[Rfam]
RNA sequence: UUCUUAUCAAGAGAGGCGGAGGGACUGGCCCUGUGAAGCCCGGCAACCGGUAUGAAUUUUAGAUUGCAUACAAUGGUGCUAAUUCCUGCAGCGAAAGCUGAAAGAUGAGGA
Numbered sequence: 001u002u003c004u005u006a007u008c009a010a011g012a013g014a015g016g017c018g019g020a021g022g023g024a025c026u027g028g029c030c031c032u033g034u035g036a037a038g039c040c041c042g043g044c045a046a047c048c049g050g051u052a053u054g055a056a057u058u059u060u061a062g063a064u065u066g067c068a069u070a071c072a073a074u075g076g077u078g079c080u081a082a083u084u085c086c087u088g089c090a091g092c093g094a095a096a097g098c099u100g101a102a103a104g105a106u107g108a109g110g111a
Stems, first nucleotide, its partner, number of pairs: 001111008013041001015040003021031003025088001027086002042080004047076002050071005084103001089100004

This 111-nucleotide RNA sequence from Clostridium thermopalmarium belongs to the Rfam family "SAM riboswitch aptamer (S box leader)". On this family, see Baird et al., RNA 2012: "YbxF and YlxQ are bacterial homologs of L7Ae and bind K-turns but not K-loops". The SAM riboswitch is found upstream of a number of genes which code for proteins involved in methionine or cysteine biosynthesis in Gram-positive bacteria.